[Rfam]
RNA: Purine riboswitch aptamer
Organism: Ferrimonas aestuarii
RNA sequence: GCGCCAACAAUUUAGUGGCGCUGUAUAUCUCUGGAAAUCUGGUCCGGAAGUCUCUACCACAAGACCCAAUCUUGUGACUACAGUCGACACCUUCUAUCCC
Number, nucleotide and partner (000 for none) at each position: 001g000002c000003g000004c000005c000006a000007a000008c000009a000010a000011u000012u000013u000014a000015g000016u000017g000018g000019c000020g084021c083022u082023g081024u080025a079026u000027a000028u000029c000030u048031c047032u046033g045034g044035a043036a000037a000038u000039c000040u000041g000042g000043u035044c034045c033046g032047g031048a030049a000050g000051u000052c000053u000054c000055u000056a000057c000058c076059a075060c074061a073062a072063g071064a070065c000066c000067c000068a000069a000070u064071c063072u062073u061074g060075u059076g058077a000078c000079u025080a024081c023082a022083g021084u020085c000086g000087a000088c000089a000090c000091c000092u000093u000094c000095u000096a000097u000098c000099c000100c000